Rfam assigns this 146-nucleotide sequence from Bradyrhizobium sp. LTSP885 to the family "flg-Rhizobiales RNA".
The family's RNA type in Rfam is cis-regulatory element.
The source organism's lineage runs through Bacteria, Pseudomonadati, Pseudomonadota, Hyphomicrobiales and Bradyrhizobium.
RNA sequence: GUAACCGGCAGGCUUGGGAGAGCCGAGAGGUUACCGACGAUCCGGUGUCAAGGCUUGGGAGAGCUUAGCAAUCGGAUCACCUCACAGGGGAGAACCACCGAUGCAGAAUACGCUUCUGGUCGGACUAUCGAAGCAGAUGGUGCUGG
Numbered sequence: 001g002u003a004a005c006c007g008g009c010a011g012g013c014u015u016g017g018g019a020g021a022g023c024c025g026a027g028a029g030g031u032u033a034c035c036g037a038c039g040a041u042c043c044g045g046u047g048u049c050a051a052g053g054c055u056u057g058g059g060a061g062a063g064c065u066u067a068g069c070a071a072u073c074g075g076a077u078c079a080c081c082u083c084a085c086a087g088g089g090g091a092g093a094a095c096c097a098c099c100g101a102u103g104c105a106g107a108a109u110a111c112g113c114u115u116c117u118g119g120u121c122g123g124a125c126u127a128u129c130g131a132a133g134c135a136g137a138u139g140g141u142g143c144u145g146g
Stems, first nucleotide, its partner, number of pairs: 001034006009027001011024005039078006052065005098123005104118005

Description:
Pairs were carried over by alignment from the consensus structure, which is taken from published work.